RNA: c-di-GMP-I-GGC riboswitch aptamer
Organism: Arcobacter sp. FWKO B
RNA sequence: AAUGUUAAAGCCAAACUUAUCGUGAGGUAAGGACGGAAAGCCACGGGUCUUGAUUGUAAGAUAGCCGAGUUGCCAAAA
Numbered sequence: 001a002a003u004g005u006u007a008a009a010g011c012c013a014a015a016c017u018u019a020u021c022g023u024g025a026g027g028u029a030a031g032g033a034c035g036g037a038a039a040g041c042c043a044c045g046g047g048u049c050u051u052g053a054u055u056g057u058a059a060g061a062u063a064g065c066c067g068a069g070u071u072g073c074c075a076a077a078a
Stems, first nucleotide, its partner, number of pairs: 003075002011036002016031006034064001039071003044067003047062003